[Rfam]
RNA sequence: CGCAUGGGGUUAGCGAUCUCCCCACUAGGCGGCAUGCCCAAGCAUCGCGUCAGGCUUUUCGAGCCAGGGACGCAGCAUG
Numbered sequence: 001c002g003c004a005u006g007g008g009g010u011u012a013g014c015g016a017u018c019u020c021c022c023c024a025c026u027a028g029g030c031g032g033c034a035u036g037c038c039c040a041a042g043c044a045u046c047g048c049g050u051c052a053g054g055c056u057u058u059u060c061g062a063g064c065c066a067g068g069g070a071c072g073c074a075g076c077a078u079g
Stems, first nucleotide, its partner, number of pairs: 005024005047073005
Shown here is a 79-nucleotide RNA sequence from Candidatus Methylaffinis lahnbergensis, a member of the family "chrB-a RNA". The organism belongs to Candidatus Methylaffinis, within Bacteria.